The record is a 150-nucleotide sequence, which matches "DUF2800 RNA" in Rfam.
It is annotated as a cis-regulatory element.
Pairs were carried over by alignment from the consensus structure, which is taken from published work.
RNA sequence: CCAUCAAAGUGUUCAUCCACUGAUCAAGGAUGAUUCCAGAACAUUUUGAGGGGCAACUAAACACUACAGCCGACCACUGGAAUGGUUGGCCAGGACUGAAAUGAGGAUUCAUUUUCAGAUGGCCAGCUAUGCCUAUUUUGCAGUGGGUCC
Numbered sequence: 001c002c003a004u005c006a007a008a009g010u011g012u013u014c015a016u017c018c019a020c021u022g023a024u025c026a027a028g029g030a031u032g033a034u035u036c037c038a039g040a041a042c043a044u045u046u047u048g049a050g051g052g053g054c055a056a057c058u059a060a061a062c063a064c065u066a067c068a069g070c071c072g073a074c075c076a077c078u079g080g081a082a083u084g085g086u087u088g089g090c091c092a093g094g095a096c097u098g099a100a101a102u103g104a105g106g107a108u109u110c111a112u113u114u115u116c117a118g119a120u121g122g123c124c125a126g127c128u129a130u131g132c133c134u135a136u137u138u139u140g141c142a143g144u145g146g147g148u149c150c
Stems, first nucleotide, its partner, number of pairs: 001052002004049002007046007014032005034082006067146001069144002072141001087125005100113005